[Rfam]
Shown here is a 92-nucleotide sequence from Herpetotheres cachinnans, a member of the family "Small nucleolar RNA U83B". Gene Ontology terms of the family: nucleolus and RNA processing. It scores 44 bits against the family's covariance model. A reference for the family is Jady and Kiss (2000), "Characterisation of the U83 and U84 small nucleolar RNAs: two novel 2'-O-ribose methylation guide RNAs that lack complementarities to ribosomal RNAs", Nucleic Acids Res.
RNA sequence: GUUGUUUAGUCAUGAGGCAUGGGAAGAAGCACUGGGCAGUGUCUGACACCCGUGGGGAGUGGCUCUGCACCUGCAUUUCUUCUGGGAGCAGC
Numbered sequence: 001g002u003u004g005u006u007u008a009g010u011c012a013u014g015a016g017g018c019a020u021g022g023g024a025a026g027a028a029g030c031a032c033u034g035g036g037c038a039g040u041g042u043c044u045g046a047c048a049c050c051c052g053u054g055g056g057g058a059g060u061g062g063c064u065c066u067g068c069a070c071c072u073g074c075a076u077u078u079c080u081u082c083u084g085g086g087a088g089c090a091g092c
Stems, first nucleotide, its partner, number of pairs: 001092005
Record summary:
U83B belongs to the C/D family of snoRNAs. U83B like U83A has no documented RNA target and they share the same host gene with the C/D box snoRNA U43 (RPL3). N.B. U83A/B/C have no sequence similarity with the U83 snoRNA that was cloned by Jady and Kiss (2000). Rfam 15.1 lists 966 matches to the family in 652 species. Rfam classes the family as a C/D-box small nucleolar RNA.